Rfam assigns this 109-nucleotide RNA sequence to the family "Actinomyces-1 RNA". Pairs were carried over by alignment from the consensus structure, which is taken from published work.

RNA sequence: AUCACCGCCGGGCGGAACGGAUCGGGAGGGUUGGGGAACCCGUUGAUCGAUCCGGGCCGAGACUGGUGCAGGUCUUAGGGAGCCUGCUCCAGGCGCUCCGGCGAAGGAG
Numbered sequence: 001a002u003c004a005c006c007g008c009c010g011g012g013c014g015g016a017a018c019g020g021a022u023c024g025g026g027a028g029g030g031u032u033g034g035g036g037a038a039c040c041c042g043u044u045g046a047u048c049g050a051u052c053c054g055g056g057c058c059g060a061g062a063c064u065g066g067u068g069c070a071g072g073u074c075u076u077a078g079g080g081a082g083c084c085u086g087c088u089c090c091a092g093g094c095g096c097u098c099c100g101g102c103g104a105a106g107g108a109g
Stems, first nucleotide, its partner, number of pairs: 006103007013059003018054007028041005061094001063092004069086005